The record is a 102-nucleotide sequence from Sporanaerobacter sp. PP17-6a, which matches "Purine riboswitch aptamer" in Rfam. Lineage of the source: Bacteria > Bacillota > Tissierellia > Tissierellales > Sporanaerobacter. It scores 84 bits against the family's covariance model. Pairs were carried over by alignment from the consensus structure, which is taken from published work.

[Rfam]
RNA sequence: CAAUUUUAUAUAAUGUACGUUCAUAUAAAUCUCACAAUAUGGCUGAGAAGUCUCUACCAAGUGACCGUAAAUUACUUGACUAUGAAUGAAAAUGCACUUAGG
Numbered sequence: 001c002a003a004u005u006u007u008a009u010a011u012a013a014u015g016u017a018c019g020u021u022c023a024u025a026u027a028a029a030u031c032u033c034a035c036a037a038u039a040u041g042g043c044u045g046a047g048a049a050g051u052c053u054c055u056a057c058c059a060a061g062u063g064a065c066c067g068u069a070a071a072u073u074a075c076u077u078g079a080c081u082a083u084g085a086a087u088g089a090a091a092a093u094g095c096a097c098u099u100a101g102g
Stems, first nucleotide, its partner, number of pairs: 018088008030048005058078007
Dot-bracket structure: .................((((((((....(((((.........))))).........(((((((.......)))))))..))))))))..............